[Rfam]
RNA sequence: GCUGCGUUGGCGCAAUGGAUAGCGCGUUGCUUUCCGGUGGCAAAGGUUCCAGGUUCGAGUCCUGGGCGUGGCU
Numbered sequence: 001g002c003u004g005c006g007u008u009g010g011c012g013c014a015a016u017g018g019a020u021a022g023c024g025c026g027u028u029g030c031u032u033u034c035c036g037g038u039g040g041c042a043a044a045g046g047u048u049c050c051a052g053g054u055u056c057g058a059g060u061c062c063u064g065g066g067c068g069u070g071g072c073u
Base pairs, nucleotide, nucleotide: 001072002071003070004069005068006067007066010025011024012023013022027043028042029041030040031039049065050064051063052062053061